RNA: GA-cis RNA
Organism: Lachnospiraceae bacterium TWA4
RNA sequence: GAGAAAAGAAGCCCAUAGGACAAAGUCCUAUAUAGUAAUGGCUUAAAUGAUAUGCCGUCGACGUAAGGAGAGGCGAUACAUUAA
Number, nucleotide and partner (000 for none) at each position: 001g000002a000003g000004a000005a000006a000007a000008g000009a044010a043011g042012c041013c040014c000015a031016u030017a029018g028019g027020a026021c000022a000023a000024a000025g000026u020027c019028c018029u017030a016031u015032a000033u000034a000035g000036u000037a000038a000039u000040g013041g012042c011043u010044u009045a000046a000047a000048u000049g000050a000051u000052a000053u000054g074055c073056c072057g000058u071059c070060g000061a000062c067063g000064u000065a000066a000067g062068g000069a000070g059071a058072g056073g055074c054075g000076a000077u000078a000079c000080a000081u000082u000083a000084a000